Rfam assigns this 84-nucleotide RNA sequence to the family "RT-18 RNA".
Rfam's curators put it in the seed alignment.
It is annotated as a small RNA.
[Rfam]
RNA sequence: CACCCCACGGUGAAGAUAGGCAUUUUGGGAGCAGGCUAGUACACUCCGCAGGGAGCGAUGGAAAGCCUGUACAGCUAAAAGGAG
Numbered sequence: 001c002a003c004c005c006c007a008c009g010g011u012g013a014a015g016a017u018a019g020g021c022a023u024u025u026u027g028g029g030a031g032c033a034g035g036c037u038a039g040u041a042c043a044c045u046c047c048g049c050a051g052g053g054a055g056c057g058a059u060g061g062a063a064a065g066c067c068u069g070u071a072c073a074g075c076u077a078a079a080a081g082g083a084g
Stems, first nucleotide, its partner, number of pairs: 001012004019076003031070006042060002044055003